A member of the RNA family "Small nucleolar RNA SNORA22" from Hucho hucho, 135 nucleotides long. Taxonomically the source falls in Hucho (Eukaryota, Chordata, Gnathostomata, Salmoniformes). ACA22 is a member of the H/ACA class of snoRNA that guide the sites of modification of uridines to pseudouridines.
RNA sequence: CAGCACAGUGAAGGCCCAUGUGUGCUUUGUCGCUCCCCUGGUAAUUAAUCUGUGCUACAGUAAAGUGUGGUCUGUAACCUCUGCAUUGGAGGAGCUAUAUUCUCCUCUGCGUGUAUUCAGCGGACCUGAACAUUC
Numbered sequence: 001c002a003g004c005a006c007a008g009u010g011a012a013g014g015c016c017c018a019u020g021u022g023u024g025c026u027u028u029g030u031c032g033c034u035c036c037c038c039u040g041g042u043a044a045u046u047a048a049u050c051u052g053u054g055c056u057a058c059a060g061u062a063a064a065g066u067g068u069g070g071u072c073u074g075u076a077a078c079c080u081c082u083g084c085a086u087u088g089g090a091g092g093a094g095c096u097a098u099a100u101u102c103u104c105c106u107c108u109g110c111g112u113g114u115a116u117u118c119a120g121c122g123g124a125c126c127u128g129a130a131c132a133u134u135c
Stems, first nucleotide, its partner, number of pairs: 003055006010049001013046002016041003020037001022035001024033002057073001059071001061069002081120003084113003088108007